Rfam assigns this 68-nucleotide RNA sequence from Populus tomentosa to the family "MIR164 microRNA precursor family".
RNA sequence: UGGAGAAGAAGAGCACGUGCAAAGUGUAAAUACUCAUUAGGAUUUUGCACGUGCCCUGCUUCUCCAGC
Numbered sequence: 001u002g003g004a005g006a007a008g009a010a011g012a013g014c015a016c017g018u019g020c021a022a023a024g025u026g027u028a029a030a031u032a033c034u035c036a037u038u039a040g041g042a043u044u045u046u047g048c049a050c051g052u053g054c055c056c057u058g059c060u061u062c063u064c065c066a067g068c
Stems, first nucleotide, its partner, number of pairs: 001066008010057002013054012029034001

Annotation:
Taxonomically the source falls in Populus (Eukaryota, Streptophytina, Tracheophyta, Pentapetalae).